RNA sequence: UGAUAUAAGUGUCAAAGGUCAAAAUGCAUUUAUGCUUGCAUAAGAAGCAUUUUGACUUUAUGACACGCCGAACCAUGAGAAAGUAGCAUUUUACGCAGUAAAAUAGCGGAUUUCGAAUGGUUCUAGGAUUGCGAAAAUUGCGAUAGCAAUGUAGCAAUCCGUAUAUCA
Numbered sequence: 001u002g003a004u005a006u007a008a009g010u011g012u013c014a015a016a017g018g019u020c021a022a023a024a025u026g027c028a029u030u031u032a033u034g035c036u037u038g039c040a041u042a043a044g045a046a047g048c049a050u051u052u053u054g055a056c057u058u059u060a061u062g063a064c065a066c067g068c069c070g071a072a073c074c075a076u077g078a079g080a081a082a083g084u085a086g087c088a089u090u091u092u093a094c095g096c097a098g099u100a101a102a103a104u105a106g107c108g109g110a111u112u113u114c115g116a117a118u119g120g121u122u123c124u125a126g127g128a129u130u131g132c133g134a135a136a137a138u139u140g141c142g143a144u145a146g147c148a149a150u151g152u153a154g155c156a157a158u159c160c161g162u163a164u165a166u167c168a
Stems, first nucleotide, its partner, number of pairs: 001168007010065004016058011029045001030043005070123007079114004086107002088104007126160007137150004

A member of the RNA family "Clostridiales-1 RNA" from Eubacterium uniforme, 168 nucleotides long. NCBI's taxonomy places the organism under Bacteria, Bacillati, Bacillota, Eubacteriaceae, Eubacterium. By type it is a small RNA.